This 379-nucleotide RNA from Aliidiomarina taiwanensis belongs to the Rfam family "Bacterial RNase P class A". Lineage of the source: Bacteria > Pseudomonadati > Pseudomonadota > Gammaproteobacteria > Aliidiomarina. It scores 327 bits against the family's covariance model. Rfam classes the family as a ribozyme.
RNA sequence: GGAGUCAGCCAAGGCAAUCGCUGCUUGCUUUCCUUAGAAUUUCUAAGGCAGCAAGGGGAGGAAAGUCCGGGCUCCAUAGGGCAGAGUGCCAGGUAACGCCUGGGCGGCGCGAGCCGACGACUAGUGCAGCAGAGAGUAUACCGCCGAUGGCCGCUUCUUCGGAAGUGUGCACAGGUAAGGGUGAAAGGGUGCGGUAAGAGCGCACCGCGUGGCUGGAAACAGUUCAUGGCACGGUAAACUCCACUCGGAGCAAGACCAAAUAGGGAUCCUUGGGGCGGCCCGCUUCGGAUCCGGGUAGGUUGCAUGAGGCUAUAGGCGACUAUAGCCCUAGAUGAAUGAUUGUCCACGACAGAACCCGGCUUAUUGGCUGACUCCACCU
Numbered sequence: 001g002g003a004g005u006c007a008g009c010c011a012a013g014g015c016a017a018u019c020g021c022u023g024c025u026u027g028c029u030u031u032c033c034u035u036a037g038a039a040u041u042u043c044u045a046a047g048g049c050a051g052c053a054a055g056g057g058g059a060g061g062a063a064a065g066u067c068c069g070g071g072c073u074c075c076a077u078a079g080g081g082c083a084g085a086g087u088g089c090c091a092g093g094u095a096a097c098g099c100c101u102g103g104g105c106g107g108c109g110c111g112a113g114c115c116g117a118c119g120a121c122u123a124g125u126g127c128a129g130c131a132g133a134g135a136g137u138a139u140a141c142c143g144c145c146g147a148u149g150g151c152c153g154c155u156u157c158u159u160c161g162g163a164a165g166u167g168u169g170c171a172c173a174g175g176u177a178a179g180g181g182u183g184a185a186a187g188g189g190u191g192c193g194g195u196a197a198g199a200g201c202g203c204a205c206c207g208c209g210u211g212g213c214u215g216g217a218a219a220c221a222g223u224u225c226a227u228g229g230c231a232c233g234g235u236a237a238a239c240u241c242c243a244c245u246c247g248g249a250g251c252a253a254g255a256c257c258a259a260a261u262a263g264g265g266a267u268c269c270u271u272g273g274g275g276c277g278g279c280c281c282g283c284u285u286c287g288g289a290u291c292c293g294g295g296u297a298g299g300u301u302g303c304a305u306g307a308g309g310c311u312a313u314a315g316g317c318g319a320c321u322a323u324a325g326c327c328c329u330a331g332a333u334g335a336a337u338g339a340u341u342g343u344c345c346a347c348g349a350c351a352g353a354a355c356c357c358g359g360c361u362u363a364u365u366g367g368c369u370g371a372c373u374c375c376a377c378c379u
Stems, first nucleotide, its partner, number of pairs: 001375010011364001013344007021058002024055006063362003067359005072250004079281004084246005089103005104118001105116004119241002124239002126235002141180002143176003148171002188206006207230001208228005213222003254301004264292006272286005308327008